[Rfam]
This 59-nucleotide RNA sequence from Myotis myotis belongs to the Rfam family "Antizyme RNA frameshifting stimulation element". The family has 13 seed sequences and 1,595 matches in Rfam 15.1. The base pairs follow the family's consensus structure, which is taken from published work. It scores 72 bits against the family's covariance model. A reference for the family is Ivanov et al. (2004), "Identification of a new antizyme mRNA +1 frameshifting stimulatory pseudoknot in a subset of diverse invertebrates and its apparent absence in intermediate species", J Mol Biol. Rfam's curators write: This family represents a structural element which is found in antizyme mRNA and is known to promote frameshifting. Antizyme genes have have two partially overlapping open reading frames, the second, which encodes the functional protein requires +1 translational frameshifting. This frameshift is stimulated by a pseudoknot present 3' of the frameshift site in the antizyme mRNA. The frameshifting efficiency is dependent on the level of polyamines in the cell, when the polyamine concentration is high frameshifting is more likely to occur which leads to an increase in the quantity of functional antizyme produced. The functional antizyme acts to reduce ornithine decarboxylase (ODC) activity which leads to a drop in polyamines present in the cell. Therefore, this family can be thought of as a biosensor for intracellular free polyamines.
RNA sequence: UCAUGUCCCUCACCCACCCCUCAAGAUCCCGGGUGGGCGAGGGAAUAGUUGGAGGGAUC
Numbered sequence: 001u002c003a004u005g006u007c008c009c010u011c012a013c014c015c016a017c018c019c020c021u022c023a024a025g026a027u028c029c030c031g032g033g034u035g036g037g038c039g040a041g042g043g044a045a046u047a048g049u050u051g052g053a054g055g056g057a058u059c
Stems, first nucleotide, its partner, number of pairs: 006044006013037006025059006